A member of the RNA family "GP20-b RNA" from Aminipila butyrica, 60 nucleotides long. It is annotated as a cis-regulatory element. Taxonomically the source falls in Aminipila (Bacteria, Bacillati, Bacillota, Clostridia). The match comes from Rfam's covariance-model search (57 bits). The family's consensus secondary structure is taken from published work.
RNA sequence: CGCCUACCUGCGGGCGUAAUAAGGCAGGACGGCACGGGACGCAACCCCGUAAAAAGCGUA
Numbered sequence: 001c002g003c004c005u006a007c008c009u010g011c012g013g014g015c016g017u018a019a020u021a022a023g024g025c026a027g028g029a030c031g032g033c034a035c036g037g038g039a040c041g042c043a044a045c046c047c048c049g050u051a052a053a054a055a056g057c058g059u060a
Base pairs, nucleotide, nucleotide: 001016002015003014004013008027009026010025011024035049036048037047038046